[Rfam]
RNA sequence: UUCCCUCAUCAGCCGGGGGGGGAGGGCGGCCACAUGUGGCCGCUACCUCUUCAACUGGGCUGUGAAGACG
Number, nucleotide and partner (000 for none) at each position: 001u000002u000003c000004c000005c000006u065007c064008a063009u062010c000011a000012g000013c058014c057015g056016g055017g050018g049019g048020g047021g046022g000023a000024g000025g000026g040027c039028g000029g037030c036031c000032a000033c000034a000035u000036g030037u029038g000039g027040c026041c000042g000043c000044u000045a000046c021047c020048u019049c018050u017051u000052c000053a000054a000055c016056u015057g014058g013059g000060c000061u000062g009063u008064g007065a006066a000067g000068a000069c000070g000

The record is a 70-nucleotide RNA from Orthohepacivirus hominis, which matches "Hepatitis C virus stem-loop VII" in Rfam.
The family's consensus secondary structure was predicted with RNAfold.
The organism belongs to Hepatitis C virus genotype 2, within Viruses.